[Rfam]
This 163-nucleotide sequence from Streptomyces sp. ISL-11 belongs to the Rfam family "c-di-AMP riboswitch aptamer (ydaO/yuaA leader)".
RNA sequence: CCGGGUGCGGAGCAGAUUCGAAAUGGAUCGGCAGGAGCGGGAGACCCAAGCACGACGGACCACGAUCGCGGUGGUCCUUGGGGUGAAGCCACAUCCGUGGCCGGGCAACUUCGACAGCCCGAACCCGACAGGUCAUCUUUCGCAGGCGGAUGACGAAGGGUUU
Numbered sequence: 001c002c003g004g005g006u007g008c009g010g011a012g013c014a015g016a017u018u019c020g021a022a023a024u025g026g027a028u029c030g031g032c033a034g035g036a037g038c039g040g041g042a043g044a045c046c047c048a049a050g051c052a053c054g055a056c057g058g059a060c061c062a063c064g065a066u067c068g069c070g071g072u073g074g075u076c077c078u079u080g081g082g083g084u085g086a087a088g089c090c091a092c093a094u095c096c097g098u099g100g101c102c103g104g105g106c107a108a109c110u111u112c113g114a115c116a117g118c119c120c121g122a123a124c125c126c127g128a129c130a131g132g133u134c135a136u137c138u139u140u141c142g143c144a145g146g147c148g149g150a151u152g153a154c155g156a157a158g159g160g161u162u163u
Stems, first nucleotide, its partner, number of pairs: 001146002006036001008034001037143004041137002047080004081126003089100004103120004
NCBI's taxonomy places the organism under Bacteria, Bacillati, Actinomycetes, Kitasatosporales, Streptomyces. Gene Ontology terms of the family: regulation of gene expression and cyclic-di-AMP binding.